Shown here is a 139-nucleotide sequence from Microbacterium sp., a member of the family "FMN riboswitch aptamer (RFN element)". Taxonomically the source falls in Microbacterium (Bacteria, Bacillati, Actinomycetes, Microbacteriaceae). Rfam describes the family as follows. The RFN element is a highly conserved domain that is found frequently in the 5'-untranslated regions of prokaryotic mRNAs that encode for flavin mononucleotide (FMN) biosynthesis and transport proteins.
RNA sequence: AUGUGCUCCGGGGUCGGUGAGAAUCCGAACCGGCGGUGACAGUCCGCGACCCCCCGUUACGGCGGGGGUUGAUCUGGUGGAAAUCCAGGACCGACGGUGAUGCGACGCGAGUCGCGAGUCCGGAUGGGAGGAAGCACAC
Numbered sequence: 001a002u003g004u005g006c007u008c009c010g011g012g013g014u015c016g017g018u019g020a021g022a023a024u025c026c027g028a029a030c031c032g033g034c035g036g037u038g039a040c041a042g043u044c045c046g047c048g049a050c051c052c053c054c055c056g057u058u059a060c061g062g063c064g065g066g067g068g069u070u071g072a073u074c075u076g077g078u079g080g081a082a083a084u085c086c087a088g089g090a091c092c093g094a095c096g097g098u099g100a101u102g103c104g105a106c107g108c109g110a111g112u113c114g115c116g117a118g119u120c121c122g123g124a125u126g127g128g129a130g131g132a133a134g135c136a137c138a139c
Stems, first nucleotide, its partner, number of pairs: 003137005008130001015027003031093002033047004042091002051068002073089005095122003